[Rfam]
RNA sequence: AACAACAAAUGAUGACUACAAGGGACUUAAUACUGAAAUGUGAUGUCACCUUUUAUAUUUAUUCUGAUGCUUGU
Numbered sequence: 001a002a003c004a005a006c007a008a009a010u011g012a013u014g015a016c017u018a019c020a021a022g023g024g025a026c027u028u029a030a031u032a033c034u035g036a037a038a039u040g041u042g043a044u045g046u047c048a049c050c051u052u053u054u055a056u057a058u059u060u061a062u063u064c065u066g067a068u069g070c071u072u073g074u
Stems, first nucleotide, its partner, number of pairs: 002074003006069002

Background: This 74-nucleotide sequence from Labeo rohita belongs to the Rfam family "Small nucleolar RNA SNORD82". The literature on the family includes a 2002 paper in Mol Cell Biol by Galardi et al., "Purified box C/D snoRNPs are able to reproduce site-specific 2'-O-methylation of target RNA in vitro". The source organism's lineage runs through Eukaryota, Bilateria, Osteoglossocephalai, Cypriniphysae and Labeo. The base pairs follow the family's consensus structure, which was predicted with PFOLD. snoRNA U82 or Z25 is found in both humans and mice.